[Rfam]
RNA: mraW RNA
RNA sequence: CCGCUGCGGUGAGGCGAGGCCUCAGCCCGGCCGACCCUGGCGUACUUCCCCAACGUCAGGUGCGACUCGGGCGGGGACCCCGCCUCACCGCAGUGUCAGU
Numbered sequence: 001c002c003g004c005u006g007c008g009g010u011g012a013g014g015c016g017a018g019g020c021c022u023c024a025g026c027c028c029g030g031c032c033g034a035c036c037c038u039g040g041c042g043u044a045c046u047u048c049c050c051c052a053a054c055g056u057c058a059g060g061u062g063c064g065a066c067u068c069g070g071g072c073g074g075g076g077a078c079c080c081c082g083c084c085u086c087a088c089c090g091c092a093g094u095g096u097c098a099g100u
Stems, first nucleotide, its partner, number of pairs: 010087007018079002021076003025072006032064002036060008
Dot-bracket structure: .........(((((((.((.(((.((((((.((..((((((((.........))))))))..))..)))))).))).)).))))))).............